[Rfam]
The family of this 80-nucleotide RNA sequence from Musa balbisiana is "Plastid-rpl20 3UTR RNA". The base pairs follow the family's consensus structure, which was predicted with LocARNA. Plastid rpl20 is a non-coding RNA (ncRNA) recognised in plastids. It was found in the three prime untranslated region (3UTR) of rpl20 gene, it presence in the 3UTR region sugest a role in transcript maduration. It scores 56 bits against the family's covariance model. The source organism's lineage runs through Eukaryota, Embryophyta, Mesangiospermae, Liliopsida and Musa.

RNA sequence: ACAGAUCCCCGUAGAAGGAACUCCGGAAAAUAGAAUAAAAAAAUUAAGAUAGUAAUAGGAAUGAACGAAUAUGUUUCAAU
Numbered sequence: 001a002c003a004g005a006u007c008c009c010c011g012u013a014g015a016a017g018g019a020a021c022u023c024c025g026g027a028a029a030a031u032a033g034a035a036u037a038a039a040a041a042a043a044u045u046a047a048g049a050u051a052g053u054a055a056u057a058g059g060a061a062u063g064a065a066c067g068a069a070u071a072u073g074u075u076u077c078a079a080u
Stems, first nucleotide, its partner, number of pairs: 006028001008026001010025002013022002063076004